A member of the RNA family "Plastid-rps12 3UTR RNA" from Nicotiana tabacum, 97 nucleotides long. Rfam's curators write: Plastid rpl20 is a non-coding RNA (ncRNA) recognised in plastids. It was found in the three prime untranslated region (3UTR) of rps12 gene, its 3UTR location sugest a role in transcript maduration. By type it is a cis-regulatory element. The base pairs follow the family's consensus structure, which was predicted with LocARNA.
[Rfam]
RNA sequence: GGUUUCCAUUAGUAUAAAUUUAAUCACCUGAAUUUAAGAUGAUAAGAAAUUCUCCAUUGGUAACAAAUGGUUAUCCAUUAAACGGAGGAAUGGAGAA
Dot-bracket structure: ........((((.......))))............................((((((.((((((.....)))))).)).....))))..........